This 102-nucleotide sequence from Amphibacillus xylanus belongs to the Rfam family "Purine riboswitch aptamer".

RNA sequence: AAAAAUAAAAAAAUUAUUACUCGUAUAAUCGUGGUGAUAUGGACCACAAGUUUCUACCGGGCUACCGUAAAUAGCCUGACUAUGAGUGAAGAUUAGCAUUGU
Numbered sequence: 001a002a003a004a005a006u007a008a009a010a011a012a013a014u015u016a017u018u019a020c021u022c023g024u025a026u027a028a029u030c031g032u033g034g035u036g037a038u039a040u041g042g043a044c045c046a047c048a049a050g051u052u053u054c055u056a057c058c059g060g061g062c063u064a065c066c067g068u069a070a071a072u073a074g075c076c077u078g079a080c081u082a083u084g085a086g087u088g089a090a091g092a093u094u095a096g097c098a099u100u101g102u
Base pairs, nucleotide, nucleotide: 018088019087020086021085022084023083024082025081029049031047032046033045034044035043058078059077060076061075062074063073064072
Gene Ontology term of the family: purine nucleobase biosynthetic process.